Annotation: Shown here is a 69-nucleotide RNA from Actinomadura meyerae, a member of the family "ASpks TB sRNA". The family's consensus secondary structure is taken from published work. The family has 77 seed sequences and 9,052 matches in Rfam 15.1.
RNA sequence: UUUGAUCGAGCCGAGCCACAGCGGCGUGUCGCGGUCCUGCCCGUAGGUGGCCAGCAGCGCUUGGGCCUC
Numbered sequence: 001u002u003u004g005a006u007c008g009a010g011c012c013g014a015g016c017c018a019c020a021g022c023g024g025c026g027u028g029u030c031g032c033g034g035u036c037c038u039g040c041c042c043g044u045a046g047g048u049g050g051c052c053a054g055c056a057g058c059g060c061u062u063g064g065g066c067c068u069c
Base pairs, nucleotide, nucleotide: 015025016024017023030063032059033058037054038053039052041050042049043048

Lineage of the source: Bacteria > Bacillati > Actinomycetes > Thermomonosporaceae > Actinomadura.